Actino-pnp RNA: an 81-nucleotide RNA from Modestobacter muralis. By type it is a cis-regulatory element.
RNA sequence: GCCGGUCCUCGGUGGUGGCCCCCGGGACAGCGAGCCUGAUCGCAGGCACCCGCGCCCCGAGGGCUUCGAUCGAGCACCGGU
Numbered sequence: 001g002c003c004g005g006u007c008c009u010c011g012g013u014g015g016u017g018g019c020c021c022c023c024g025g026g027a028c029a030g031c032g033a034g035c036c037u038g039a040u041c042g043c044a045g046g047c048a049c050c051c052g053c054g055c056c057c058c059g060a061g062g063g064c065u066u067c068g069a070u071c072g073a074g075c076a077c078c079g080g081u
Stems, first nucleotide, its partner, number of pairs: 001081006009073005017065005023059004030055003